[Rfam]
Shown here is a 164-nucleotide sequence from Koleobacter methoxysyntrophicus, a member of the family "Group II catalytic intron D1-D4-3".
RNA sequence: UCGCCGGUAACGGCGGGGUCUGAAGGAAGCCGAAGGAGAACAUGGAACGUAGCGCAAGCGAACCGGGGUUGGCUUCUCAGGUGGGUAACCUUGCGAAAAGAGGGAAAGCCCGAAAGCUGGAUAACCUGAGGAGUUUGGACGGACGGGUUCAUGUUCAGGCAGGC
Number, nucleotide and partner (000 for none) at each position: 001u016002c015003g014004c013005c012006g011007g000008u000009a000010a000011c006012g005013g004014c003015g002016g001017g000018g000019u000020c000021u000022g000023a000024a000025g000026g000027a000028a000029g000030c000031c000032g164033a000034a000035g000036g160037a000038g000039a000040a154041c153042a152043u151044g150045g149046a000047a000048c145049g144050u143051a000052g000053c000054g000055c000056a000057a000058g000059c000060g000061a000062a000063c142064c141065g140066g000067g000068g000069u000070u000071g000072g134073c133074u132075u000076c130077u129078c128079a127080g126081g125082u124083g111084g110085g109086u108087a000088a000089c104090c103091u102092u101093g000094c000095g000096a000097a000098a000099a000100g000101a092102g091103g090104g089105a000106a000107a000108g086109c085110c084111c083112g000113a000114a000115a000116g000117c000118u000119g000120g000121a000122u000123a000124a082125c081126c080127u079128g078129a077130g076131g000132a074133g073134u072135u000136u000137g000138g000139a000140c065141g064142g063143a050144c049145g048146g000147g000148u000149u045150c044151a043152u042153g041154u040155u000156c000157a000158g000159g000160c036161a000162g000163g000164c032

NCBI's taxonomy places the organism under Bacteria, Bacillati, Koleobacterales, Koleobacteraceae, Koleobacter. The match comes from Rfam's covariance-model search (66 bits). On this family, see Lehmann and Schmidt, Crit Rev Biochem Mol Biol 2003: "Group II introns: structure and catalytic versatility of large natural ribozymes".